[Rfam]
RNA: Bacterial large subunit ribosomal RNA, nucleotides 868 to 1304
Organism: Chloroflexus aurantiacus
RNA sequence: CUCCCCGAAAUGUAUUGAGGUACAGCCGCGGCAAUGGCACACCCGGAGGUAGAGCACUGUUGUUGUGCGGGGGCUUCACCGCUUACCAAGCGACGGCAAACUGCGAAUGCCGGGUGUGUGCACCGCGAGUGAGACGGCGGGUGCGAAUAUCCGUCGUCGAGAGGGAAACAACCCAGACCGCCGGCUAAGGUCCCCCAGUGGUCGCUAAGUGGGAAAGGUUGUGGCGCCGCUUAGACAACCAGGAGGUUGGCUUAGAAGCAGCCAUCCUUGAAAGAGUGCGUAACAGCUCACUGGUCAAGCAGCGCUGCGCCGAGGCUGUAACGGGGCAAAGCGACCCACCGAAGCCGCGGGUUGACCGGAAGGUCAACGGUAGGGGAGCGUCGUGACCGCAGGGAAGGGACGGCGGAAGCCGCACUGGAGCGGGCACGAGUGCGAAU
Numbered sequence: 001c002u003c004c005c006c007g008a009a010a011u012g013u014a015u016u017g018a019g020g021u022a023c024a025g026c027c028g029c030g031g032c033a034a035u036g037g038c039a040c041a042c043c044c045g046g047a048g049g050u051a052g053a054g055c056a057c058u059g060u061u062g063u064u065g066u067g068c069g070g071g072g073g074c075u076u077c078a079c080c081g082c083u084u085a086c087c088a089a090g091c092g093a094c095g096g097c098a099a100a101c102u103g104c105g106a107a108u109g110c111c112g113g114g115u116g117u118g119u120g121c122a123c124c125g126c127g128a129g130u131g132a133g134a135c136g137g138c139g140g141g142u143g144c145g146a147a148u149a150u151c152c153g154u155c156g157u158c159g160a161g162a163g164g165g166a167a168a169c170a171a172c173c174c175a176g177a178c179c180g181c182c183g184g185c186u187a188a189g190g191u192c193c194c195c196c197a198g199u200g201g202u203c204g205c206u207a208a209g210u211g212g213g214a215a216a217g218g219u220u221g222u223g224g225c226g227c228c229g230c231u232u233a234g235a236c237a238a239c240c241a242g243g244a245g246g247u248u249g250g251c252u253u254a255g256a257a258g259c260a261g262c263c264a265u266c267c268u269u270g271a272a273a274g275a276g277u278g279c280g281u282a283a284c285a286g287c288u289c290a291c292u293g294g295u296c297a298a299g300c301a302g303c304g305c306u307g308c309g310c311c312g313a314g315g316c317u318g319u320a321a322c323g324g325g326g327c328a329a330a331g332c333g334a335c336c337c338a339c340c341g342a343a344g345c346c347g348c349g350g351g352u353u354g355a356c357c358g359g360a361a362g363g364u365c366a367a368c369g370g371u372a373g374g375g376g377a378g379c380g381u382c383g384u385g386a387c388c389g390c391a392g393g394g395a396a397g398g399g400a401c402g403g404c405g406g407a408a409g410c411c412g413c414a415c416u417g418g419a420g421c422g423g424g425c426a427c428g429a430g431u432g433c434g435a436a437u
Stems, first nucleotide, its partner, number of pairs: 001378006011024005026129001027127005037121001038118009052104001053102002058098003062094004069087002071084004133158010163174003178350004183346003189340003198337001200336006217311003221308007229300002238295005244268003249263003269273001274289001278287002351368007379432001381429005387423004397416002401412004